Nucleotides: 084
Base pairs, nucleotide, nucleotide: 012037013036017032018031019030020029021028022027040078041077042076043075047074048073049070050069051068056064057063
Number, partner (000 for none) and nucleotide at each position: 001000a002000a003000a004000u005000a006000u007000u008000a009000a010000u011000a012037g013036c014000a015000a016000a017032g018031c019030a020029a021028g022027a023000g024000a025000a026000a027022u028021u029020u030019u031018g032017u033000g034000a035000c036013g037012c038000a039000a040078a041077g042076c043075u044000a045000u046000a047074g048073g049070g050069a051068c052000u053000a054000c055000g056064g057063u058000u059000u060000a061000a062000u063057a064056c065000u066000a067000a068051g069050u070049c071000a072000g073048c074047c075043a076042g077041u078040u079000g080000c081000u082000a083000a084000g

A member of the RNA family "c-di-GMP-I riboswitch aptamer" from Clostridium neonatale, 84 nucleotides long. On this family, see Weinberg et al., Nucleic Acids Res 2007: "Identification of 22 candidate structured RNAs in bacteria using the CMfinder comparative genomics pipeline". The family's consensus secondary structure is taken from published work. The source organism's lineage runs through Bacteria, Clostridia, Eubacteriales, Clostridiaceae and Clostridium.